RNA sequence: CAUGAAAGAUAAUCGCUGCAUUCGUUAGAAUGUAGAGGAAAGUCCAUGCUCGCACAGUCUGCGAUGACUGUAGUGUUUGUGUCUGAUGAAACCAUAAGUCAGAGCAUAGAGGCAUCUAUGACGGCAGAUCAAUAUCCUAAGGCUUCGGCUAUGGAUGGCGACUUGAAAGUGCCACAGUGACGGAGUCUAUUGUGAAAACAGUAGAGUGGAACGCGGUAAACCCCAUAAGCGAGAAACCCAAAAUUGGUAGGGGAACUCUAACAUACAAAUUGAAGUAUCACGGAGACGUCUUCGGACGUAGAUAAAUGAUUAUCGUAACAGAACAUGGCUUAAUGAUU
Numbered sequence: 001c002a003u004g005a006a007a008g009a010u011a012a013u014c015g016c017u018g019c020a021u022u023c024g025u026u027a028g029a030a031u032g033u034a035g036a037g038g039a040a041a042g043u044c045c046a047u048g049c050u051c052g053c054a055c056a057g058u059c060u061g062c063g064a065u066g067a068c069u070g071u072a073g074u075g076u077u078u079g080u081g082u083c084u085g086a087u088g089a090a091a092c093c094a095u096a097a098g099u100c101a102g103a104g105c106a107u108a109g110a111g112g113c114a115u116c117u118a119u120g121a122c123g124g125c126a127g128a129u130c131a132a133u134a135u136c137c138u139a140a141g142g143c144u145u146c147g148g149c150u151a152u153g154g155a156u157g158g159c160g161a162c163u164u165g166a167a168a169g170u171g172c173c174a175c176a177g178u179g180a181c182g183g184a185g186u187c188u189a190u191u192g193u194g195a196a197a198a199c200a201g202u203a204g205a206g207u208g209g210a211a212c213g214c215g216g217u218a219a220a221c222c223c224c225a226u227a228a229g230c231g232a233g234a235a236a237c238c239c240a241a242a243a244u245u246g247g248u249a250g251g252g253g254a255a256c257u258c259u260a261a262c263a264u265a266c267a268a269a270u271u272g273a274a275g276u277a278u279c280a281c282g283g284a285g286a287c288g289u290c291u292u293c294g295g296a297c298g299u300a301g302a303u304a305a306a307u308g309a310u311u312a313u314c315g316u317a318a319c320a321g322a323a324c325a326u327g328g329c330u331u332a333a334u335g336a337u338u
Stems, first nucleotide, its partner, number of pairs: 005338002008314007016035006040331003044328005049233005054071006077228005082103006104122001105120006123223002126163002129160001134156004141150003169221002171217003186205008237252003256285004286299005
Dot-bracket structure: ....((.(((((((.((((((........))))))....[[[.[[[[[(((((((((((......)))))).....(((((((((((..........))))))(((((((....)))))).)((.((.(....((((...(((....)))..))))...).)).....(((((............((((((((....)))))))).........)))..))))))))))))))...(((..........)))...((((......................))))(((((....)))))........))))))).........]]]]]]]].....))

The record is a 338-nucleotide sequence from Erysipelothrix sp. HDW6B, which matches "Bacterial RNase P class B" in Rfam. By type it is a ribozyme. The family's consensus secondary structure is taken from published work.